[Rfam]
RNA sequence: GGUGACAAUGAUGAGUUGCACUAUUAAACAGGCCGCUGAUGGCGGUGCCACAUCGGCCUGUCUGACACACUGUGGUGACACCCACUGUGCACAGGGGCCAUCUGAGUCACC
Number, nucleotide and partner (000 for none) at each position: 001g000002g000003u000004g110005a000006c000007a107008a000009u000010g000011a000012u000013g000014a000015g000016u000017u000018g000019c000020a000021c000022u000023a000024u065025u064026a063027a000028a061029c060030a059031g058032g000033c056034c055035g054036c000037u000038g000039a000040u050041g049042g048043c047044g000045g000046u000047g043048c042049c041050a040051c000052a000053u000054c035055g034056g033057c000058c031059u030060g029061u028062c000063u026064g025065a024066c000067a000068c000069a000070c000071u000072g000073u000074g000075g000076u000077g000078a000079c000080a000081c000082c000083c000084a000085c000086u000087g000088u000089g000090c000091a000092c000093a000094g000095g000096g000097g000098c000099c000100a000101u000102c000103u000104g000105a000106g000107u007108c000109a000110c004111c000
RNA: Small nucleolar RNA SNORD67